Shown here is an 88-nucleotide RNA sequence from Capsicum annuum, a member of the family "Small nucleolar RNA snoR14". Pairs were carried over by alignment from the consensus structure.

RNA sequence: ACGAAGUGAUGAUAGAAUUCAUAAGUCUGUCAAUCCACUGAAAUACAUUUUAUGAUGUAAAGAGUGAAUCCCGACAGGUUCUGAUCGU
Numbered sequence: 001a002c003g004a005a006g007u008g009a010u011g012a013u014a015g016a017a018u019u020c021a022u023a024a025g026u027c028u029g030u031c032a033a034u035c036c037a038c039u040g041a042a043a044u045a046c047a048u049u050u051u052a053u054g055a056u057g058u059a060a061a062g063a064g065u066g067a068a069u070c071c072c073g074a075c076a077g078g079u080u081c082u083g084a085u086c087g088u
Base pairs, nucleotide, nucleotide: 001088002087003086004085